[Rfam]
RNA: CRISPR RNA direct repeat element
RNA sequence: ACUUAAAUACAACUUUUGUUAAUGUUCAAC
Numbered sequence: 001a002c003u004u005a006a007a008u009a010c011a012a013c014u015u016u017u018g019u020u021a022a023u024g025u026u027c028a029a030c
Stems, first nucleotide, its partner, number of pairs: 009019004